A member of the RNA family "SAM riboswitch aptamer (S box leader)" from Lutibacter agarilyticus, 102 nucleotides long. On this family, see Montange et al., J Mol Biol 2010: "Discrimination between closely related cellular metabolites by the SAM-I riboswitch". The organism belongs to Lutibacter, within Bacteria. The family's consensus secondary structure is taken from published work.
RNA sequence: UAGUUAUUAAGAAAGGCUGAGGGAAUAGACCUGUUGAAGCCUUAGCAACCCUUUAAACUAAAGAAGGUGCUACGUUCUACCAUUAAAAUGGACAGAUAACAC
Numbered sequence: 001u002a003g004u005u006a007u008u009a010a011g012a013a014a015g016g017c018u019g020a021g022g023g024a025a026u027a028g029a030c031c032u033g034u035u036g037a038a039g040c041c042u043u044a045g046c047a048a049c050c051c052u053u054u055a056a057a058c059u060a061a062a063g064a065a066g067g068u069g070c071u072a073c074g075u076u077c078u079a080c081c082a083u084u085a086a087a088a089u090g091g092a093c094a095g096a097u098a099a100c101a102c
Stems, first nucleotide, its partner, number of pairs: 003100006013043005021032003026079004044071004049067002051063004075094001080091004